[Rfam]
RNA sequence: ACUCGGGUCCCGCGCGACGGUGUUUCCCGAACCUCGUCAGGCCCGGAAGGGAGCAGCGAUAAGGGAAGGCCACCGGGCGCCGCGGUCCCCCCGGGUUCC
Numbered sequence: 001a002c003u004c005g006g007g008u009c010c011c012g013c014g015c016g017a018c019g020g021u022g023u024u025u026c027c028c029g030a031a032c033c034u035c036g037u038c039a040g041g042c043c044c045g046g047a048a049g050g051g052a053g054c055a056g057c058g059a060u061a062a063g064g065g066a067a068g069g070c071c072a073c074c075g076g077g078c079g080c081c082g083c084g085g086u087c088c089c090c091c092c093g094g095g096u097u098c099c
Stems, first nucleotide, its partner, number of pairs: 004093004010085005015077001018075005023068006034059004042051003

The record is a 99-nucleotide RNA from Thermoanaerobaculum aquaticum, which matches "Bacterial small signal recognition particle RNA" in Rfam.
Rfam's curators write: The signal recognition particle (SRP) is a universally conserved ribonucleoprotein involved in the co-translational targeting of proteins to membranes.
The source organism's lineage runs through Bacteria, Pseudomonadati, Thermoanaerobaculales, Thermoanaerobaculaceae and Thermoanaerobaculum.
Pairs were carried over by alignment from the consensus structure, which is taken from published work.
Rfam classes the family as a non-coding RNA gene.